[Rfam]
RNA sequence: GGGUAAAUGAUGAAAACUUAUAUGUCUUGAAGAGAGCUAAUGACCUAAGAAUCAUGCUCAGUAGGAUUGCACUGGGGCCC
Numbered sequence: 001g002g003g004u005a006a007a008u009g010a011u012g013a014a015a016a017c018u019u020a021u022a023u024g025u026c027u028u029g030a031a032g033a034g035a036g037c038u039a040a041u042g043a044c045c046u047a048a049g050a051a052u053c054a055u056g057c058u059c060a061g062u063a064g065g066a067u068u069g070c071a072c073u074g075g076g077g078c079c080c
Base pairs, nucleotide, nucleotide: 001080002079003078004077006073008071009070